The record is a 79-nucleotide sequence from Castor canadensis, which matches "mir-31 microRNA precursor family" in Rfam. The literature on the family includes a 2003 paper in Dev Cell by Aravin et al., "The small RNA profile during Drosophila melanogaster development". The family has 75 seed sequences and 1,181 matches in Rfam 15.1. Lineage of the source: Eukaryota > Opisthokonta > Metazoa > Theria > Castor. Clan: mir-31 microRNA precursor family. It scores 70 bits against the family's covariance model.
[Rfam]
RNA sequence: AACUGGAGAGGAGGCAAGAUGCUGGCAUAGCUGUUGACCGAGAACCUGCUAUGCCAACGUAUUGCCAGCUUUCCUGUCU
Numbered sequence: 001a002a003c004u005g006g007a008g009a010g011g012a013g014g015c016a017a018g019a020u021g022c023u024g025g026c027a028u029a030g031c032u033g034u035u036g037a038c039c040g041a042g043a044a045c046c047u048g049c050u051a052u053g054c055c056a057a058c059g060u061a062u063u064g065c066c067a068g069c070u071u072u073c074c075u076g077u078c079u
Stems, first nucleotide, its partner, number of pairs: 005074006013066005019060003023056009